[Rfam]
U11 spliceosomal RNA: a 127-nucleotide RNA sequence from Anas zonorhyncha. The organism belongs to Anas, within Eukaryota.
RNA sequence: AAAAAGGGCUUCUGCCGUGCGUGGCACGGGGGGGCCUCGGCCGCCCCCGCGGAAUCGACAUCAAGAGAUUUCGGAAGCACAAUUUUUGCGCGCGGGGCUGCCGGUAACCGAUAGUGACGGCGCCCCA
Numbered sequence: 001a002a003a004a005a006g007g008g009c010u011u012c013u014g015c016c017g018u019g020c021g022u023g024g025c026a027c028g029g030g031g032g033g034g035c036c037u038c039g040g041c042c043g044c045c046c047c048c049g050c051g052g053a054a055u056c057g058a059c060a061u062c063a064a065g066a067g068a069u070u071u072c073g074g075a076a077g078c079a080c081a082a083u084u085u086u087u088g089c090g091c092g093c094g095g096g097g098c099u100g101c102c103g104g105u106a107a108c109c110g111a112u113a114g115u116g117a118c119g120g121c122g123c124c125c126c127a
Base pairs, nucleotide, nucleotide: 008078009077010076011075012074013026014025015024016023017022027049028048029047030046031045032044033042034041035040050073051072052071053070054069055068056067095125096124097123098122100121101120102119103118107115108114

The family's RNA type in Rfam is spliceosomal small nuclear RNA.